[Rfam]
RNA sequence: AAAAAAGCAGGGGCAUGUUGCCUGUGUGAGUAUGCCUCUCGUAAUCUUCAGGGAUAUAAAUAAUCGUUGUUAUUGGGUGAACCUCUGUUCUCUGUUUGUGACUGAAAGGUUCAGUAAAUGAUGGAACACAA
Dot-bracket structure: ....(((...((.((((.............)))).))........)))...............((((((((......(((((((......................)))))))...)))))))).......
Numbered sequence: 001a002a003a004a005a006a007g008c009a010g011g012g013g014c015a016u017g018u019u020g021c022c023u024g025u026g027u028g029a030g031u032a033u034g035c036c037u038c039u040c041g042u043a044a045u046c047u048u049c050a051g052g053g054a055u056a057u058a059a060a061u062a063a064u065c066g067u068u069g070u071u072a073u074u075g076g077g078u079g080a081a082c083c084u085c086u087g088u089u090c091u092c093u094g095u096u097u098g099u100g101a102c103u104g105a106a107a108g109g110u111u112c113a114g115u116a117a118a119u120g121a122u123g124g125a126a127c128a129c130a131a
Stems, first nucleotide, its partner, number of pairs: 005048003011037002014034004064124008078113007
Shown here is a 131-nucleotide RNA sequence from Glycine max, a member of the family "Small nucleolar RNA snoR74". Rfam 15.1 lists 1,404 matches to the family in 223 species. Rfam classes the family as an H/ACA-box small nucleolar RNA. A search with the family's covariance model found it, with a score of 102 bits. The base pairs follow the family's consensus structure, which was predicted with WAR. The literature on the family includes a 2002 paper in Curr Biol by Marker et al., "Experimental RNomics: identification of 140 candidates for small non-messenger RNAs in the plant Arabidopsis thaliana".